[Rfam]
RNA sequence: AUCCUAUACAGAUGUAUUCAACGCUAGCCAGUUGGGCAUCUCCCUGUAGGAUGAAGUUUAAUUAGAAGUCCUAGCAACAAUUCUUAUUGUGUGGCUACGGUCGAAAUGAGAUGAGUUAGGAUGGAAGAGGUUAACCGUAAGACCUUGAGUUGCAAAACUCUAAAAUUGAGCUAGAGAUGUGGAUUUUCUCAUUUUCUAGUUACGGCUAG
Numbered sequence: 001a002u003c004c005u006a007u008a009c010a011g012a013u014g015u016a017u018u019c020a021a022c023g024c025u026a027g028c029c030a031g032u033u034g035g036g037c038a039u040c041u042c043c044c045u046g047u048a049g050g051a052u053g054a055a056g057u058u059u060a061a062u063u064a065g066a067a068g069u070c071c072u073a074g075c076a077a078c079a080a081u082u083c084u085u086a087u088u089g090u091g092u093g094g095c096u097a098c099g100g101u102c103g104a105a106a107u108g109a110g111a112u113g114a115g116u117u118a119g120g121a122u123g124g125a126a127g128a129g130g131u132u133a134a135c136c137g138u139a140a141g142a143c144c145u146u147g148a149g150u151u152g153c154a155a156a157a158c159u160c161u162a163a164a165a166u167u168g169a170g171c172u173a174g175a176g177a178u179g180u181g182g183a184u185u186u187u188c189u190c191a192u193u194u195u196c197u198a199g200u201u202a203c204g205g206c207u208a209g
Stems, first nucleotide, its partner, number of pairs: 001052008010041006018035005023029001068122008082111007093102002128145005135205005140166001147160005171199007179192004
About this RNA
Shown here is a 209-nucleotide sequence, a member of the family "IS605-orfB-I RNA". Pairs were carried over by alignment from the consensus structure, which is taken from published work.